Rfam assigns this 184-nucleotide RNA from Parvibaculum lavamentivorans to the family "Manganese Mn2+ riboswitch aptamer (yybP-ykoY)". This RNA was originally discovered in E. coli during a large scale screen and was named SraF. The family was later found to exist upstream of related families of protein genes in many bacteria, including the the yybP and ykoK genes in B. subtilis. The specific functions of these proteins are unknown, but this structured RNA element may be involved in their genetic regulation as a riboswitch. The source organism's lineage runs through Bacteria, Pseudomonadati, Pseudomonadota, Hyphomicrobiales and Parvibaculum lavamentivorans.
RNA sequence: ACCCCGUCCUUAGGGGAGUAGCCGCCCUCCGCCGUCAUGGCAGAGAGGGGCGGGCGUCAACAAACUCGGGCCCCGGCCCGUGGCGUCCGUGCUCAGCGAAAGCUGAUUUGGCGAGACCUUUGGCUCAUGCGCGCCCCUCUGCCGGGCGGGCGCAAUGGGUCAUUGUCUCGUCCGGCGCGGAGUU
Number, nucleotide and partner (000 for none) at each position: 001a000002c000003c000004c000005c000006g000007u000008c000009c000010u000011u000012a000013g000014g000015g000016g000017a000018g000019u000020a000021g000022c000023c000024g000025c000026c048027c047028u046029c000030c000031g000032c000033c000034g000035u000036c000037a000038u000039g000040g000041c000042a000043g000044a000045g000046a028047g027048g026049g000050g090051c089052g088053g087054g086055c085056g084057u083058c082059a081060a000061c000062a000063a000064a000065c000066u000067c080068g079069g078070g077071c076072c000073c000074c000075g000076g071077c070078c069079c068080g067081u059082g058083g057084c056085g055086u054087c053088c052089g051090u050091g000092c000093u000094c000095a184096g183097c182098g000099a000100a000101a000102g000103c000104u000105g000106a000107u000108u000109u000110g000111g000112c000113g000114a000115g000116a000117c000118c000119u000120u000121u000122g000123g000124c000125u000126c000127a000128u000129g000130c000131g000132c000133g000134c000135c000136c000137c000138u000139c000140u000141g000142c000143c000144g000145g000146g000147c000148g000149g000150g000151c000152g000153c000154a000155a000156u000157g000158g000159g000160u000161c000162a000163u000164u000165g000166u000167c000168u000169c000170g000171u000172c000173c000174g000175g000176c000177g000178c000179g000180g000181a000182g097183u096184u095